The family of this 130-nucleotide sequence from Erinaceus europaeus is "Small nucleolar RNA SNORA33". Gene Ontology terms of the family: RNA processing and nucleolus. The organism belongs to Erinaceus, within Eukaryota.

[Rfam]
RNA sequence: UAGCCAGUCAGCAAAUCUGCUUAUCUGAUUGUGUUUCUGCAGAAAUUUUUUAUAACUGGUGAUAGCAAUGCCAUGUUACAGGCCUUAAUGAUGUUGAGAUCAUUAAGGCCCCCGGUAAGUGGAUAUAUGA
Numbered sequence: 001u002a003g004c005c006a007g008u009c010a011g012c013a014a015a016u017c018u019g020c021u022u023a024u025c026u027g028a029u030u031g032u033g034u035u036u037c038u039g040c041a042g043a044a045a046u047u048u049u050u051u052a053u054a055a056c057u058g059g060u061g062a063u064a065g066c067a068a069u070g071c072c073a074u075g076u077u078a079c080a081g082g083c084c085u086u087a088a089u090g091a092u093g094u095u096g097a098g099a100u101c102a103u104u105a106a107g108g109c110c111c112c113c114g115g116u117a118a119g120u121g122g123a124u125a126u127a128u129g130a
Base pairs, nucleotide, nucleotide: 003060004059005058006057007056016043017042018041019040020039071122072121073120082109083108084107085106086105087104088103090101091100092099
Pairs were carried over by alignment from the consensus structure, which was predicted with PFOLD.